[Rfam]
RNA sequence: CGAUGGGGUAGAGGCUGCACAUAUUCAUCAGUAAACCGAGUAAGGAUGACACCUGUGAUCUUGAGUUGAAAGGGGAUAUGUGCCGAAGCAGGAGAGGAUUGGUCAGAAUCUUUUCUGCUGGGGUUACCUUGAAUAAGGGUAACACUGUCAUUAUAAGUCUUUUUAAAGAUUAUAAUGGGGAGCUACAGAUCGU
Numbered sequence: 001c002g003a004u005g006g007g008g009u010a011g012a013g014g015c016u017g018c019a020c021a022u023a024u025u026c027a028u029c030a031g032u033a034a035a036c037c038g039a040g041u042a043a044g045g046a047u048g049a050c051a052c053c054u055g056u057g058a059u060c061u062u063g064a065g066u067u068g069a070a071a072g073g074g075g076a077u078a079u080g081u082g083c084c085g086a087a088g089c090a091g092g093a094g095a096g097g098a099u100u101g102g103u104c105a106g107a108a109u110c111u112u113u114u115c116u117g118c119u120g121g122g123g124u125u126a127c128c129u130u131g132a133a134u135a136a137g138g139g140u141a142a143c144a145c146u147g148u149c150a151u152u153a154u155a156a157g158u159c160u161u162u163u164u165a166a167a168g169a170u171u172a173u174a175a176u177g178g179g180g181a182g183c184u185a186c187a188g189a190u191c192g193u
Stems, first nucleotide, its partner, number of pairs: 008186004017083009034067003037063004087119011120146002123143008148178009
Annotation
The family of this 193-nucleotide sequence from Bacillus salacetis is "Lysine riboswitch aptamer". Rfam 15.1 lists 3,224 matches to the family in 1,923 species. On this family, see Mandal et al., Cell 2003: "Riboswitches Control Fundamental Biochemical Pathways in Bacillus subtilis and Other Bacteria".